[Rfam]
RNA: Archaeal large subunit ribosomal RNA, nucleotides 1365 to 1719
Nucleotides: 355
Stems, first nucleotide, its partner, number of pairs: 016034006035352004043331004049311002054078006064070001085307003089123002094117006101109002127144005147303002150301005162294002167283009178271005183202001185200004206254004215245004225235003260265001317326002333347004
Number, partner (000 for none) and nucleotide at each position: 001000a002000g003000c004000a005000g006000u007000a008000g009000c010000a011000g012000c013000a014000a015000a016034g017033u018032c019031g020030g021029g022000u023000g024000a025000g026000a027000a028000u029021c030020c031019c032018g033017a034016c035352c036351g037350c038349c039000g040000u041000a042000a043331g044330g045329g046328c047000c048000a049311g050310g051000g052000u053000u054078c055077c056076u057075g058074g059073g060000c061000a062000a063000c064070g065000a066000u067000c068000g069000u070064c071000a072000g073059c074058c075057c076056a077055g078054g079000g080000u081000u082000a083000g084000u085307c086306g087305g088000u089123c090122c091000u092000a093000a094117g095116g096115u097114g098113u099112g100000c101109c102108g103000u104000a105000a106000c107000u108102c109101g110000a111000g112099c113098a114097c115096a116095u117094c118000a119000a120000a121000u122090g123089g124000g125000a126000a127144a128143c129142a130141g131140g132000u133000u134000a135000a136000u137000a138000u139000u140131c141130c142129u143128g144127u145000a146000c147303c148302u149000a150301c151300c152299g153298g154297c155000a156000c157000u158000a159000a160000a161000a162294c163293c164000g165000a166000c167283g168282c169281u170280u171279c172278c173277g174276g175275a176000u177000a178271u179270g180269c181268c182267u183202g184000a185200c186199a187198c188197c189000c190000g191000c192000g193000c194000c195000a196000g197188g198187g199186u200185g201000c202183u203000c204000a205000a206254g207253c208252g209251c210000c211000g212000a213000a214000g215245u216244c217243c218242g219000c220000g221000g222000a223000g224000a225235g226234c227233c228000g229000u230000c231000a232000u233227g234226g235225c236000g237000a238000g239000a240000a241000a242218c243217g244216g245215a246000c247000g248000a249000a250000u251209g252208c253207g254206u255000g256000a257000u258000g259000a260265c261000g262000c263000a264000a265260g266000c267182a268181g269180g270179c271178a272000a273000a274000u275175u276174c277173c278172g279171g280170g281169a282168g283167c284000c285000c286000g287000u288000g289000a290000a291000a292000a293163g294162g295000g296000a297154g298153c299152c300151g301150g302148a303147g304000g305087c306086c307085g308000u309000a310050c311049c312000g313000a314000g315000a316000a317326c318325c319000a320000a321000c322000a323000c324000u325318g326317g327000u328046g329045c330044c331043c332000c333347g334346a335345g336344c337000u338000a339000a340000g341000a342000a343000g344336g345335c346334u347333c348000a349038g350037g351036c352035g353000u354000g355000u